Description
Shown here is a 125-nucleotide sequence from Mycoplasma sp. 1654_15, a member of the family "DUF3800-I RNA". The match comes from Rfam's covariance-model search (46 bits).

[Rfam]
RNA sequence: UAAAUAUAUAAAAAUUUGUUAUAUAAUGUGUAUGUAAACAGAUAAGGUCUGGCGCGUGGCGUAAGUGUAAUGUAAGUGCACCCGCUUAUCUGGGCUCCUUCAUUUUGAAGGAGUUUUUUAGUUAU
Numbered sequence: 001u002a003a004a005u006a007u008a009u010a011a012a013a014a015u016u017u018g019u020u021a022u023a024u025a026a027u028g029u030g031u032a033u034g035u036a037a038a039c040a041g042a043u044a045a046g047g048u049c050u051g052g053c054g055c056g057u058g059g060c061g062u063a064a065g066u067g068u069a070a071u072g073u074a075a076g077u078g079c080a081c082c083c084g085c086u087u088a089u090c091u092g093g094g095c096u097c098c099u100u101c102a103u104u105u106u107g108a109a110g111g112a113g114u115u116u117u118u119u120a121g122u123u124a125u
Stems, first nucleotide, its partner, number of pairs: 007036004011031001012029001014027003039092006050084003053061003065081005093115010

From the family's description: Actinobacteria, Firmicutes, Fusobacteria, Proteobacteria (1 example), Tenericutes (2 examples).
By type it is a small RNA.